[Rfam]
RNA sequence: CCUAAUCGCUCCUGUAAGUCGCUCUGGAUAAGAGUGUCUGCUAAAUGUAAAAAU
Number, nucleotide and partner (000 for none) at each position: 001c000002c000003u000004a000005a000006u000007c000008g000009c000010u000011c000012c000013u043014g041015u040016a039017a000018g000019u000020c036021g035022c034023u033024c032025u031026g000027g000028a000029u000030a000031a025032g024033a023034g022035u021036g020037u000038c000039u016040g015041c014042u000043a013044a000045a000046u000047g000048u000049a000050a000051a000052a000053a000054u000
UnaL2 LINE 3' element: a 54-nucleotide sequence from Coregonus sp. 'balchen'. The base pairs follow the family's consensus structure, which is taken from published work. The literature on the family includes a 2004 paper in RNA by Baba et al., "Solution structure of an RNA stem-loop derived from the 3' conserved region of eel LINE UnaL2". It is annotated as a cis-regulatory element. Rfam 15.1 lists 493,311 matches to the family in 99 species. Taxonomically the source falls in Coregonus (Eukaryota, Metazoa, Bilateria, Protacanthopterygii).